[Rfam]
This 123-nucleotide RNA from Chelonobacter oris belongs to the Rfam family "Aggregatibacter sRNA 54". The match comes from Rfam's covariance-model search (56 bits). About the family: Validated by RT-PCR, expression up-regulated during growth. The organism belongs to Chelonobacter, within Bacteria.
Nucleotides: 123
Stems, first nucleotide, its partner, number of pairs: 001013003005009001025085003029080004041064004048059003086120004091115003095111001
Number, partner (000 for none) and nucleotide at each position: 001013g002012c003011g004000u005009a006000a007000g008000a009005u010000c011003c012002g013001c014000a015000c016000g017000a018000u019000u020000u021000g022000a023000u024000a025085a026084u027083a028000u029080g030079a031078g032077g033000a034000a035000c036000a037000c038000a039000c040000u041064u042063u043062g044061g045000a046000c047000a048059g049058u050057c051000a052000u053000a054000g055000a056000c057050g058049a059048u060000a061044c062043u063042g064041g065000u066000u067000u068000a069000a070000u071000g072000c073000u074000u075000a076000c077032c078031c079030u080029u081000g082000a083027u084026a085025u086120u087119u088118u089117c090000c091115c092114c093113g094000u095111c096000a097000u098000u099000u100000u101000u102000c103000a104000a105000a106000u107000g108000c109000u110000u111095g112000c113093c114092g115091g116000c117089g118088a119087a120086a121000a122000a123000u